RNA sequence: AAGCGUUGACAUAAGGUGUUGCGCCAGAAGGCAGUGCCUUACGAGCUUUGAAUGGGUUUCACGUUUACCGCAUUCUGGCUAGACUGUAAAUGCAGUUGAAAGAAAACGUCAGGG
Numbered sequence: 001a002a003g004c005g006u007u008g009a010c011a012u013a014a015g016g017u018g019u020u021g022c023g024c025c026a027g028a029a030g031g032c033a034g035u036g037c038c039u040u041a042c043g044a045g046c047u048u049u050g051a052a053u054g055g056g057u058u059u060c061a062c063g064u065u066u067a068c069c070g071c072a073u074u075c076u077g078g079c080u081a082g083a084c085u086g087u088a089a090a091u092g093c094a095g096u097u098g099a100a101a102g103a104a105a106a107c108g109u110c111a112g113g114g
Base pairs, nucleotide, nucleotide: 001048002047003046004045012041013040014039015038016037017036018035019034020033021032022031024078025077026076027075061109062108063107082097083096084095085094086093087092
Shown here is a 114-nucleotide RNA sequence, a member of the family "drum RNA". Rfam describes the family as follows. Firmicutes, Bacteroidetes (1 example), Proteobacteria (2 examples), Spirochaetes (2 examples). It is one of the family's seed sequences.